A member of the RNA family "Small nucleolar RNA SNORD91 family" from Monodelphis domestica, 91 nucleotides long. For this family Rfam cites "RNomics: an experimental approach that identifies 201 candidates for novel, small, non-messenger RNAs in mouse" (Huttenhofer et al., EMBO J, 2001).
[Rfam]
RNA sequence: AGGAGGAGCUCAUGAUGUUGGCUGAAAUGUCUGAACCUGACUGAGACAUCUGUGUGAUGCAUCCCCAUCAUGCUCUGAAGCUUCUCAAAAG
Numbered sequence: 001a002g003g004a005g006g007a008g009c010u011c012a013u014g015a016u017g018u019u020g021g022c023u024g025a026a027a028u029g030u031c032u033g034a035a036c037c038u039g040a041c042u043g044a045g046a047c048a049u050c051u052g053u054g055u056g057a058u059g060c061a062u063c064c065c066c067a068u069c070a071u072g073c074u075c076u077g078a079a080g081c082u083u084c085u086c087a088a089a090a091g
Stems, first nucleotide, its partner, number of pairs: 004085007

A search with the family's covariance model found it, with a score of 62 bits.